[Rfam]
Shown here is a 188-nucleotide RNA sequence from Actinidia chinensis, a member of the family "Early nodulin 40". By type it is a non-coding RNA gene. The family has 35 seed sequences and 341 matches in Rfam 15.1.
RNA sequence: AUGGGUACAAAUUGGGAUGAAUCAAUUCAUGGGUCUUGAAAAGCAGGGCAACUUAGAAAGGGGGGUGGGGGAGUGGGGGGAAGGAUUCCAAUUUCCUCCUCCAAAUUCAGACAGUUUGCUUUUGGGCUUUUAAGCCUAAUAGCAAACCGGCAAGUCACAGAAAGGCAAUCGGCUCUGAUGGGAGUCCU
Numbered sequence: 001a002u003g004g005g006u007a008c009a010a011a012u013u014g015g016g017a018u019g020a021a022u023c024a025a026u027u028c029a030u031g032g033g034u035c036u037u038g039a040a041a042a043g044c045a046g047g048g049c050a051a052c053u054u055a056g057a058a059a060g061g062g063g064g065g066u067g068g069g070g071g072a073g074u075g076g077g078g079g080g081a082a083g084g085a086u087u088c089c090a091a092u093u094u095c096c097u098c099c100u101c102c103a104a105a106u107u108c109a110g111a112c113a114g115u116u117u118g119c120u121u122u123u124g125g126g127c128u129u130u131u132a133a134g135c136c137u138a139a140u141a142g143c144a145a146a147c148c149g150g151c152a153a154g155u156c157a158c159a160g161a162a163a164g165g166c167a168a169u170c171g172g173c174u175c176u177g178a179u180g181g182g183a184g185u186c187c188u
Stems, first nucleotide, its partner, number of pairs: 060102006114147006171186005

Gene Ontology term of the family: nodulation. The source organism's lineage runs through Eukaryota, Streptophyta, Magnoliopsida, Actinidiaceae and Actinidia chinensis.